The family of this 66-nucleotide RNA sequence from Coptotermes formosanus is "mir-375 microRNA precursor family". Its family is annotated with miRNA-mediated post-transcriptional gene silencing and RISC complex in the Gene Ontology. The source organism's lineage runs through Eukaryota, Pancrustacea, Blattoidea, Rhinotermitidae and Coptotermes.
RNA sequence: UAUGACUUAAGCCCUGCGAGCAAACUGUGGCUGUGAAUUCGUUUGUUCGUUCGGCUCGAGUUAUAA
Dot-bracket structure: (((.((((.((((...((.((((.(...............).)))).))...)))).)))).))).